[Rfam]
RNA sequence: AAAGCAGGGAUAGUGUGUAUCGACAUGUGCUAAGAAAAUAGAUGCACAAUGAUCGAAAGAGUUCCCAUGCUAUAUUAAAAAAUGGGGAAGGUGGGCAGUUGUGUUUCAUUUUUCUCUGUUGAAUCAACAACAAUCAUCUUCCCCACAUCG
Numbered sequence: 001a002a003a004g005c006a007g008g009g010a011u012a013g014u015g016u017g018u019a020u021c022g023a024c025a026u027g028u029g030c031u032a033a034g035a036a037a038a039u040a041g042a043u044g045c046a047c048a049a050u051g052a053u054c055g056a057a058a059g060a061g062u063u064c065c066c067a068u069g070c071u072a073u074a075u076u077a078a079a080a081a082a083u084g085g086g087g088a089a090g091g092u093g094g095g096c097a098g099u100u101g102u103g104u105u106u107c108a109u110u111u112u113u114c115u116c117u118g119u120u121g122a123a124u125c126a127a128c129a130a131c132a133a134u135c136a137u138c139u140u141c142c143c144c145a146c147a148u149c150g
Stems, first nucleotide, its partner, number of pairs: 004070003007066004015047006084144011098131004
Dot-bracket structure: ...(((((((....((((((.....................))))))...............)))).))).............(((((((((((...((((..........................))))..)))))))))))......

Record summary: The record is a 150-nucleotide sequence from Apium graveolens, which matches "small nucleolar RNA snoR135" in Rfam. Its family is annotated with RNA processing and nucleolus in the Gene Ontology. The family has 6 seed sequences and 837 matches in Rfam 15.1. Pairs were carried over by alignment from the consensus structure, which was predicted with RNAalifold. The family's RNA type in Rfam is H/ACA-box small nucleolar RNA.